[Rfam]
RNA sequence: UACAGGGUAGUCAGCGAUGCGUUAAGUGUCAUGGAAACGGAAUGUGAGCCAUGGACGAAAACUGCGGUUGCGAUAUCGUUGACGCAUUCACUGUA
Numbered sequence: 001u002a003c004a005g006g007g008u009a010g011u012c013a014g015c016g017a018u019g020c021g022u023u024a025a026g027u028g029u030c031a032u033g034g035a036a037a038c039g040g041a042a043u044g045u046g047a048g049c050c051a052u053g054g055a056c057g058a059a060a061a062c063u064g065c066g067g068u069u070g071c072g073a074u075a076u077c078g079u080u081g082a083c084g085c086a087u088u089c090a091c092u093g094u095a
Stems, first nucleotide, its partner, number of pairs: 001095005010083010020072003026056002029054006040089005060069003